[Rfam]
RNA sequence: UAUUUUCUUCAGGGAUUGGUGUAAUUCCAUACCGGUGGUAAAGCCCACGAGCCGUAAAAGGCAUGAUUCGGUGUAAUUCCGAAGCCGACAGUAAAGUCUGGAUGAAAGAAGAUUUUU
Numbered sequence: 001u002a003u004u005u006u007c008u009u010c011a012g013g014g015a016u017u018g019g020u021g022u023a024a025u026u027c028c029a030u031a032c033c034g035g036u037g038g039u040a041a042a043g044c045c046c047a048c049g050a051g052c053c054g055u056a057a058a059a060g061g062c063a064u065g066a067u068u069c070g071g072u073g074u075a076a077u078u079c080c081g082a083a084g085c086c087g088a089c090a091g092u093a094a095a096g097u098c099u100g101g102a103u104g105a106a107a108g109a110a111g112a113u114u115u116u117u
Base pairs, nucleotide, nucleotide: 006112007111008110009109010108017029018028019027031097032096033087034086035048036047037046038045043085044084053061067083068082069081070080071079089100090099091098
A member of the RNA family "FMN riboswitch aptamer (RFN element)" from Eubacterium sp. CAG:274, 117 nucleotides long.
Rfam's curators write: The RFN element is a highly conserved domain that is found frequently in the 5'-untranslated regions of prokaryotic mRNAs that encode for flavin mononucleotide (FMN) biosynthesis and transport proteins.
The source organism's lineage runs through Bacteria, Bacillati, Eubacteriales, Eubacteriaceae and Eubacterium.